[Rfam]
RNA sequence: UAUUAUGCUUAGCUGAAUUUCCUAAAGGAAAACGGGGGAACCACUUUGGGGGUGAAUCGCCAACUGGCGUAGAGCAGUUUUCAGCUCGAAUCCGACAGCUAACCUCGUAAGCGUUGAAACACGUUAGC
Numbered sequence: 001u002a003u004u005a006u007g008c009u010u011a012g013c014u015g016a017a018u019u020u021c022c023u024a025a026a027g028g029a030a031a032a033c034g035g036g037g038g039a040a041c042c043a044c045u046u047u048g049g050g051g052g053u054g055a056a057u058c059g060c061c062a063a064c065u066g067g068c069g070u071a072g073a074g075c076a077g078u079u080u081u082c083a084g085c086u087c088g089a090a091u092c093c094g095a096c097a098g099c100u101a102a103c104c105u106c107g108u109a110a111g112c113g114u115u116g117a118a119a120c121a122c123g124u125u126a127g128c
Stems, first nucleotide, its partner, number of pairs: 012112003018031003032108006042049001050093003058069004072087004